[Rfam]
RNA sequence: UUUUAGAGGGAAGUUGAAUUUAUGAUUUUCUUCCAUCAAUUUAACAAAGGCAAAAUUGAAGACGAGCUAUCGUUUCAGUCGUCAUAUUGUUCUAAAAAUUGACGAUUCGAUUGUUGACUCGCCUACAU
Numbered sequence: 001u002u003u004u005a006g007a008g009g010g011a012a013g014u015u016g017a018a019u020u021u022a023u024g025a026u027u028u029u030c031u032u033c034c035a036u037c038a039a040u041u042u043a044a045c046a047a048a049g050g051c052a053a054a055a056u057u058g059a060a061g062a063c064g065a066g067c068u069a070u071c072g073u074u075u076c077a078g079u080c081g082u083c084a085u086a087u088u089g090u091u092c093u094a095a096a097a098a099u100u101g102a103c104g105a106u107u108c109g110a111u112u113g114u115u116g117a118c119u120c121g122c123c124u125a126c127a128u
Stems, first nucleotide, its partner, number of pairs: 006037002009034003016029003060124002063121004069111004078106007087097001
Rfam assigns this 128-nucleotide RNA from Beta vulgaris to the family "Small nucleolar RNA snoR111". By type it is an H/ACA-box small nucleolar RNA. The base pairs follow the family's consensus structure, which was predicted with WAR. It scores 59 bits against the family's covariance model. Rfam 15.1 lists 533 matches to the family in 223 species. Its family is annotated with nucleolus and RNA processing in the Gene Ontology.